[Rfam]
RNA sequence: CUGUGGUGCAUUGUAGUUGCAUUGCAUGAUCCUUCCUCACCUGUGCAAUGUGUCUGCAGUGCAGCACAG
Numbered sequence: 001c002u003g004u005g006g007u008g009c010a011u012u013g014u015a016g017u018u019g020c021a022u023u024g025c026a027u028g029a030u031c032c033u034u035c036c037u038c039a040c041c042u043g044u045g046c047a048a049u050g051u052g053u054c055u056g057c058a059g060u061g062c063a064g065c066a067c068a069g
Stems, first nucleotide, its partner, number of pairs: 001069004006065001007063010019051001021049007

The family of this 69-nucleotide RNA sequence from Erpetoichthys calabaricus is "mir-33 microRNA precursor family".
The base pairs follow the family's consensus structure, which was predicted with PFOLD.
Lineage of the source: Eukaryota > Deuterostomia > Teleostomi > Actinopterygii > Erpetoichthys.